[Rfam]
RNA sequence: AAUCACCACUGGGGGUGCCCUUAAUGGGGCUGAGAGAGGCGAGCUGCCUUAACCCUUAUAACUUGAACCGGUUUGAACCGGCGUAAGGAAGGGGUGUUUUGACGCA
Numbered sequence: 001a002a003u004c005a006c007c008a009c010u011g012g013g014g015g016u017g018c019c020c021u022u023a024a025u026g027g028g029g030c031u032g033a034g035a036g037a038g039g040c041g042a043g044c045u046g047c048c049u050u051a052a053c054c055c056u057u058a059u060a061a062c063u064u065g066a067a068c069c070g071g072u073u074u075g076a077a078c079c080g081g082c083g084u085a086a087g088g089a090a091g092g093g094g095u096g097u098u099u100u101g102a103c104g105c106a
Stems, first nucleotide, its partner, number of pairs: 006094002009091002011056004017030005037049005062087004068081004
About this RNA:
Rfam assigns this 106-nucleotide RNA from Domibacillus iocasae to the family "TPP riboswitch aptamer (THI element)". The source organism's lineage runs through Bacteria, Bacillati, Bacilli, Caryophanales and Domibacillus. The family's consensus secondary structure is taken from published work.